This 129-nucleotide RNA belongs to the Rfam family "LAGLIDADG-2 RNA".
By type it is a small RNA.
Rfam's curators put it in the seed alignment.
[Rfam]
RNA sequence: AUACAGGCCUCACUUAGAGGCCUUGCUGUGACCUGGGGAGGUUAGGCAUCCAAAUGGGUAGCAGCGGCACCCUUCUGGAGAGACGGUCACCGGAGACCGGGCUUGUCAGACCCGGUCGGGAGCCGUUUU
Numbered sequence: 001a002u003a004c005a006g007g008c009c010u011c012a013c014u015u016a017g018a019g020g021c022c023u024u025g026c027u028g029u030g031a032c033c034u035g036g037g038g039a040g041g042u043u044a045g046g047c048a049u050c051c052a053a054a055u056g057g058g059u060a061g062c063a064g065c066g067g068c069a070c071c072c073u074u075c076u077g078g079a080g081a082g083a084c085g086g087u088c089a090c091c092g093g094a095g096a097c098c099g100g101g102c103u104u105g106u107c108a109g110a111c112c113c114g115g116u117c118g119g120g121a122g123c124c125g126u127u128u129u
Stems, first nucleotide, its partner, number of pairs: 005023007029044006049079004056073001057071002061068002080129007095117007